Description
The record is an 87-nucleotide sequence from Thiohalomonas denitrificans, which matches "c-di-GMP-I riboswitch aptamer" in Rfam. The organism belongs to Thiohalomonas, within Bacteria. GEMM was predicted in a large-scale screen for bacterial structured RNA regulatory elements.

RNA sequence: ACCUGAUAAAGGCAAACCUGUCGAAAGACAGGGGCACAAAGCCACCGGCCUAAGGGACUUCGGUUCUAGGGCAGCGGAGCUACCAGG
Numbered sequence: 001a002c003c004u005g006a007u008a009a010a011g012g013c014a015a016a017c018c019u020g021u022c023g024a025a026a027g028a029c030a031g032g033g034g035c036a037c038a039a040a041g042c043c044a045c046c047g048g049c050c051u052a053a054g055g056g057a058c059u060u061c062g063g064u065u066c067u068a069g070g071g072c073a074g075c076g077g078a079g080c081u082a083c084c085a086g087g
Stems, first nucleotide, its partner, number of pairs: 012037001017032006040081003045077003048072003055066004